About this RNA:
The record is a 137-nucleotide RNA from Cohaesibacter marisflavi, which matches "Alphaproteobacterial sRNA BjrC1505" in Rfam. The source organism's lineage runs through Bacteria, Pseudomonadati, Alphaproteobacteria, Cohaesibacteraceae and Cohaesibacter. The base pairs follow the family's consensus structure. For this family Rfam cites "Small RNAs of the Bradyrhizobium/Rhodopseudomonas lineage and their analysis" (Madhugiri et al., RNA Biol, 2012).
RNA sequence: AUUUUAAAUUAACAAAAAAUUAAUCAUUAUAUGUGUAAAGUAUAGUAUCCAUGAUUUAUGGAUUUCGAGUGGCUCCUGUCACUCUGUUUGACGCCUCCCUGUUAACUCCUGAGAGCCGCUCUUGCGGCUCUUUUUUU
Dot-bracket structure: ((.((.........).(...((...........)))...).))...((((.........))))...(((((........))))).....((((......)))).......(((((((((....))))))))).....